A member of the RNA family "Acido-Lenti-1 RNA" from Cyclobacterium marinum, 46 nucleotides long. Taxonomically the source falls in Cyclobacterium marinum (Bacteria, Pseudomonadati, Cytophagales, Cyclobacterium). It scores 50 bits against the family's covariance model. The family's RNA type in Rfam is small RNA. Pairs were carried over by alignment from the consensus structure, which is taken from published work.

RNA sequence: CCAAGGGCUGACACCCUUGGCUGAUUUAUUACGCCCCUAUGGGGCU
Numbered sequence: 001c002c003a004a005g006g007g008c009u010g011a012c013a014c015c016c017u018u019g020g021c022u023g024a025u026u027u028a029u030u031a032c033g034c035c036c037c038u039a040u041g042g043g044g045c046u
Stems, first nucleotide, its partner, number of pairs: 001020007033045005